The family of this 345-nucleotide RNA from Youxingia wuxianensis is "Bacterial RNase P class A".
RNA sequence: GGAGCGAAUUGGGCAGCGGCGCAGCAAGGAAGUUUUUCUUUGCUGCGAGGAAAGUCCGGGCUUCAUAGGGCAGGAUACCUGCUAACGGCAGGCCGAGGCGACUCGAGGGACAGUGCAACAGAAAGAUACCGCCGGCAGUCCUGCCGGUAAGGAUGGAAAGGCGAGGUAAGAGCUCACCGGGGUACAGGCGACUGUACUGCCAUGUAAACCCUAUCCGAAGCAACACCGACGAAGGCGAUACGGCGGCCCGCCGUGCCUUGACAGGUGGCUAGAACCGUCUGGCGACAGCCGGUCCAGAAAGAUCGUUGUCCGCGACAGAACCCGGCUUAUAGAUUCCCUCCCUGC
Numbered sequence: 001g002g003a004g005c006g007a008a009u010u011g012g013g014c015a016g017c018g019g020c021g022c023a024g025c026a027a028g029g030a031a032g033u034u035u036u037u038c039u040u041u042g043c044u045g046c047g048a049g050g051a052a053a054g055u056c057c058g059g060g061c062u063u064c065a066u067a068g069g070g071c072a073g074g075a076u077a078c079c080u081g082c083u084a085a086c087g088g089c090a091g092g093c094c095g096a097g098g099c100g101a102c103u104c105g106a107g108g109g110a111c112a113g114u115g116c117a118a119c120a121g122a123a124a125g126a127u128a129c130c131g132c133c134g135g136c137a138g139u140c141c142u143g144c145c146g147g148u149a150a151g152g153a154u155g156g157a158a159a160g161g162c163g164a165g166g167u168a169a170g171a172g173c174u175c176a177c178c179g180g181g182g183u184a185c186a187g188g189c190g191a192c193u194g195u196a197c198u199g200c201c202a203u204g205u206a207a208a209c210c211c212u213a214u215c216c217g218a219a220g221c222a223a224c225a226c227c228g229a230c231g232a233a234g235g236c237g238a239u240a241c242g243g244c245g246g247c248c249c250g251c252c253g254u255g256c257c258u259u260g261a262c263a264g265g266u267g268g269c270u271a272g273a274a275c276c277g278u279c280u281g282g283c284g285a286c287a288g289c290c291g292g293u294c295c296a297g298a299a300a301g302a303u304c305g306u307u308g309u310c311c312g313c314g315a316c317a318g319a320a321c322c323c324g325g326c327u328u329a330u331a332g333a334u335u336c337c338c339u340c341c342c343u344g345c
Stems, first nucleotide, its partner, number of pairs: 001341004006336005011330001012310007020047011052328003056325005061220004068249004073216005078092005093107001094105004108211002113209002115205003129152002131148007160178002163175003179200001180198002183196005224267004233258004240254005274293004279288003
Taxonomically the source falls in Youxingia (Bacteria, Bacillota, Clostridia, Eubacteriales). It is annotated as a ribozyme.